[Rfam]
RNA sequence: AAUGAGCAAUUACAUACAGUUCAAGUCCAAAUGCCGUAUUGAGCCUGUAUGUUUACUGCUA
Numbered sequence: 001a002a003u004g005a006g007c008a009a010u011u012a013c014a015u016a017c018a019g020u021u022c023a024a025g026u027c028c029a030a031a032u033g034c035c036g037u038a039u040u041g042a043g044c045c046u047g048u049a050u051g052u053u054u055a056c057u058g059c060u061a
Base pairs, nucleotide, nucleotide: 013051014050015049016048017047019044020043021042022041023040024039028036

This 61-nucleotide RNA sequence from Enterovirus betacoxsackie belongs to the Rfam family "Enterovirus cis-acting replication element". On this family, see Paul et al., J Virol 2000: "Identification of an RNA hairpin in poliovirus RNA that serves as the primary template in the in vitro uridylylation of VPg". From the family's description: The first step in the replication of the plus-stranded poliovirus RNA is the synthesis of a complementary minus strand. This process is initiated by the covalent attachment of UMP to the terminal protein VPg, yielding VPgpU and VPgpUpU. A small RNA hairpin in the coding region of protein 2C as the site in PV1(M) RNA that is used as the primary template for the in vitro uridylylation. Rfam classes the family as a cis-regulatory element. NCBI's taxonomy places the organism under Viruses, Picornavirales, Ensavirinae, Enterovirus, Enterovirus B.